RNA sequence: AUAGCAGUGAUGAGGUAAAACACAUGAGGAUGUGUUUAGGGAAGUGGACAAGACGAUUAAAACCGUUUUGCCGUGAUCCCCAUUUUAAACGACUUCUCCUUCCACUGAGCUUU
Numbered sequence: 001a002u003a004g005c006a007g008u009g010a011u012g013a014g015g016u017a018a019a020a021c022a023c024a025u026g027a028g029g030a031u032g033u034g035u036u037u038a039g040g041g042a043a044g045u046g047g048a049c050a051a052g053a054c055g056a057u058u059a060a061a062a063c064c065g066u067u068u069u070g071c072c073g074u075g076a077u078c079c080c081c082a083u084u085u086u087a088a089a090c091g092a093c094u095u096c097u098c099c100u101u102c103c104a105c106u107g108a109g110c111u112u113u
Base pairs, nucleotide, nucleotide: 001113003111004110005109
Rfam assigns this 113-nucleotide RNA from Helianthus annuus to the family "Small nucleolar RNA Z152/R70/R12/". On this family, see Barneche et al., J Mol Biol 2001: "Identification of 66 box C/D snoRNAs in Arabidopsis thaliana: extensive gene duplications generated multiple isoforms predicting new ribosomal RNA 2'-O-methylation sites". Rfam links the family to the GO terms RNA processing and nucleolus. The organism belongs to Helianthus, within Eukaryota. The base pairs follow the family's consensus structure, which was predicted with PFOLD.